Acido-Lenti-1 RNA: a 47-nucleotide RNA from Prosthecobacter gellanilyticus. The family has 87 seed sequences and 2,607 matches in Rfam 15.1. A search with the family's covariance model found it, with a score of 38 bits. The family's consensus secondary structure is taken from published work. The family's RNA type in Rfam is small RNA.
RNA sequence: CCUGGGGCUCAUCACCCCAGGCUGGUAUAGGUCGCGCCUUUGGCGCU
Numbered sequence: 001c002c003u004g005g006g007g008c009u010c011a012u013c014a015c016c017c018c019a020g021g022c023u024g025g026u027a028u029a030g031g032u033c034g035c036g037c038c039u040u041u042g043g044c045g046c047u
Stems, first nucleotide, its partner, number of pairs: 001021007034046005